[Rfam]
The record is a 105-nucleotide RNA sequence from Erwinia billingiae, which matches "TPP riboswitch aptamer (THI element)" in Rfam.
RNA sequence: AGCCUCUCCGAGGGGUGUCCUUUAUGGGCUGAGAUGGCGACGUUAGCCGGACCCUUUGAACCUGAUCUGGGUCAUGCCAGCGAAGGGACGGGUUGGCAAUAGCAC
Numbered sequence: 001a002g003c004c005u006c007u008c009c010g011a012g013g014g015g016u017g018u019c020c021u022u023u024a025u026g027g028g029c030u031g032a033g034a035u036g037g038c039g040a041c042g043u044u045a046g047c048c049g050g051a052c053c054c055u056u057u058g059a060a061c062c063u064g065a066u067c068u069g070g071g072u073c074a075u076g077c078c079a080g081c082g083a084a085g086g087g088a089c090g091g092g093u094u095g096g097c098a099a100u101a102g103c104a105c
Base pairs, nucleotide, nucleotide: 007092008091009090010089011055012054013053014052016049017029018028019027020026036048037047038046040044061086062085063084067080068079069078070077

Pairs were carried over by alignment from the consensus structure, which is taken from published work. About the family: Vitamin B(1) in its active form thiamin pyrophosphate (TPP) is an essential coenzyme that is synthesised by coupling of pyrimidine and thiazole moieties in bacteria. The match comes from Rfam's covariance-model search (75 bits). Taxonomically the source falls in Erwinia (Bacteria, Pseudomonadati, Gammaproteobacteria, Erwiniaceae).